Rfam assigns this 127-nucleotide RNA sequence from Alkaliphilus peptidifermentans to the family "Molybdenum/Tungsten riboswitch aptamer (Moco RNA motif)". Taxonomically the source falls in Alkaliphilus peptidifermentans (Bacteria, Clostridia, Natronincolaceae, Alkaliphilus). For this family Rfam cites "in molybdenum cofactor and tungsten cofactor metabolism" (Regulski et al., Mol Microbiol, 2008). The family has 160 seed sequences and 1,248 matches in Rfam 15.1. The family's consensus secondary structure is taken from published work.

[Rfam]
RNA sequence: AUACUUAUAAAUUUCCGAGUGAAACAAUCUAAAGCAAAGCUAAGGAAGGCUAUGAUUUUUCACCAAUGGGUAAAUAAAGAAAUUUAUUUACCUCCCACCCUUGGAAAGGAAAUUUCUUUACUUCGUA
Numbered sequence: 001a002u003a004c005u006u007a008u009a010a011a012u013u014u015c016c017g018a019g020u021g022a023a024a025c026a027a028u029c030u031a032a033a034g035c036a037a038a039g040c041u042a043a044g045g046a047a048g049g050c051u052a053u054g055a056u057u058u059u060u061c062a063c064c065a066a067u068g069g070g071u072a073a074a075u076a077a078a079g080a081a082a083u084u085u086a087u088u089u090a091c092c093u094c095c096c097a098c099c100c101u102u103g104g105a106a107a108g109g110a111a112a113u114u115u116c117u118u119u120a121c122u123u124c125g126u127a
Stems, first nucleotide, its partner, number of pairs: 011113006019063006027056003033051003068093011094104002